chrB-b RNA: a 45-nucleotide RNA sequence. Rfam classes the family as a cis-regulatory element.
RNA sequence: UGGGGAUGCAGGCUCCCCAUCAGACGAUCGUCGUCCAAGCUCUGC
Numbered sequence: 001u002g003g004g005g006a007u008g009c010a011g012g013c014u015c016c017c018c019a020u021c022a023g024a025c026g027a028u029c030g031u032c033g034u035c036c037a038a039g040c041u042c043u044g045c
Base pairs, nucleotide, nucleotide: 001019002018003017004016005015006014008045009044010043011042012041023035024034025033026032027031